[Rfam]
Bacterial large subunit ribosomal RNA: a 354-nucleotide part of an RNA from Chloroflexus aurantiacus.
The base pairs follow the family's consensus structure, which is taken from published work.
The organism belongs to Chloroflexus aurantiacus, within Bacteria.
RNA sequence: CGAGUGACCCCCGGUUAAGGAACUCGGCAAAUUGACCCCGUACCUUCGGAAGAAGGGGUGCUGCGUGUAGGGUGAAGCCCCUGGCGGGUGGAGCCCGAGGCAGCCGCAGGGUCCAGGCCCGGGCGACUGGAUACCAGAACCACAGCUCCCUGCUGAAGCCGGAAGGCGACGUAUAGGGGGUGAUGCCUGCCCAGUGCCGGAAGGUUAAGGGGAGGGGUGAACGCUCCAAACCGAAGCCCCGGUAAACGGCGGCUGUAACUAUAACAGUCCUAAGGUAGCGAAAUUCCUUGUCGGGUAAGUUCCGACCCGCACGAAAGGCAUCACGAUCUGGGCACUGUCUCGACCGGGGGCUCG
Numbered sequence: 001c002g003a004g005u006g007a008c009c010c011c012c013g014g015u016u017a018a019g020g021a022a023c024u025c026g027g028c029a030a031a032u033u034g035a036c037c038c039c040g041u042a043c044c045u046u047c048g049g050a051a052g053a054a055g056g057g058g059u060g061c062u063g064c065g066u067g068u069a070g071g072g073u074g075a076a077g078c079c080c081c082u083g084g085c086g087g088g089u090g091g092a093g094c095c096c097g098a099g100g101c102a103g104c105c106g107c108a109g110g111g112u113c114c115a116g117g118c119c120c121g122g123g124c125g126a127c128u129g130g131a132u133a134c135c136a137g138a139a140c141c142a143c144a145g146c147u148c149c150c151u152g153c154u155g156a157a158g159c160c161g162g163a164a165g166g167c168g169a170c171g172u173a174u175a176g177g178g179g180g181u182g183a184u185g186c187c188u189g190c191c192c193a194g195u196g197c198c199g200g201a202a203g204g205u206u207a208a209g210g211g212g213a214g215g216g217g218u219g220a221a222c223g224c225u226c227c228a229a230a231c232c233g234a235a236g237c238c239c240c241g242g243u244a245a246a247c248g249g250c251g252g253c254u255g256u257a258a259c260u261a262u263a264a265c266a267g268u269c270c271u272a273a274g275g276u277a278g279c280g281a282a283a284u285u286c287c288u289u290g291u292c293g294g295g296u297a298a299g300u301u302c303c304g305a306c307c308c309g310c311a312c313g314a315a316a317g318g319c320a321u322c323a324c325g326a327u328c329u330g331g332g333c334a335c336u337g338u339c340u341c342g343a344c345c346g347g348g349g350g351c352u353c354g
Base pairs, nucleotide, nucleotide: 001354002353003352004351009349010348011347012346013345014344015343016342018340019339020338035059036058037057038056039055044049060104061103062102063101064100068083069082070081071080072079105109117333118332119331120330121329122328123327124325125324128142129141130140145181146180147179148178149177150176151175152174153171158167159166160165184320185319186318187317189250190249191248194247195246196243197242198241199240200239203238204237205236209232210231214227215226216225217224218223251269252268253267254266255265256264270274280307290306291305292304293303294302295301
Dot-bracket structure: ((((....((((((((.(((..............(((((....(....).....)))))(((((...(((((......)))))................)))))(...).......(((((((((..(((.........)))..(((((((((....(((....)))...)..))))))))..((((.(((..(((((((..(((...((...(((((....)))))...))...))))))))..)))))((((((.......))))))(...).....(.........((((((.....))))))).........))))...)).)))))))....))).)))))))).))))